[Rfam]
RNA: miR-430 microRNA precursor family
RNA sequence: AGCAUUGCUCUGACAAUAGCACUGACUUGAGCUCUACAAGCAGUAAGUGCUCUAUGUUGGGGUAAUAUGA
Numbered sequence: 001a002g003c004a005u006u007g008c009u010c011u012g013a014c015a016a017u018a019g020c021a022c023u024g025a026c027u028u029g030a031g032c033u034c035u036a037c038a039a040g041c042a043g044u045a046a047g048u049g050c051u052c053u054a055u056g057u058u059g060g061g062g063u064a065a066u067a068u069g070a
Base pairs, nucleotide, nucleotide: 004066005065006064007063008062009061010060011059013057014056015055018051019050020049021048022047023046025044026043027042